[Rfam]
RNA sequence: UGUAUCGCGAGGUGCAGGCUGAAGGCAGUGUGGAGCAAAACCGCGAGCCAACGAACAGAAAUCAGAUAUGAGGCUGUUUGCGUGAGGACGAGUCAGCACUUGAUGACGAAGUCCAUACUCAUCCGGACAUUCAGGCAGUAGAUCUGGUGGUUGUGCGGCGAAGGCGGUGUGA
Numbered sequence: 001u002g003u004a005u006c007g008c009g010a011g012g013u014g015c016a017g018g019c020u021g022a023a024g025g026c027a028g029u030g031u032g033g034a035g036c037a038a039a040a041c042c043g044c045g046a047g048c049c050a051a052c053g054a055a056c057a058g059a060a061a062u063c064a065g066a067u068a069u070g071a072g073g074c075u076g077u078u079u080g081c082g083u084g085a086g087g088a089c090g091a092g093u094c095a096g097c098a099c100u101u102g103a104u105g106a107c108g109a110a111g112u113c114c115a116u117a118c119u120c121a122u123c124c125g126g127a128c129a130u131u132c133a134g135g136c137a138g139u140a141g142a143u144c145u146g147g148u149g150g151u152u153g154u155g156c157g158g159c160g161a162a163g164g165c166g167g168u169g170u171g172a
Stems, first nucleotide, its partner, number of pairs: 001016006029171004035165002041158005046152005062147006073139003077135004082130002086114004092107004

A member of the RNA family "Group II catalytic intron D1-D4-3" from Endozoicomonas montiporae, 172 nucleotides long. Its family is annotated with Group II intron splicing in the Gene Ontology. Lineage of the source: Bacteria > Pseudomonadati > Oceanospirillales > Endozoicomonadaceae > Endozoicomonas. Pairs were carried over by alignment from the consensus structure.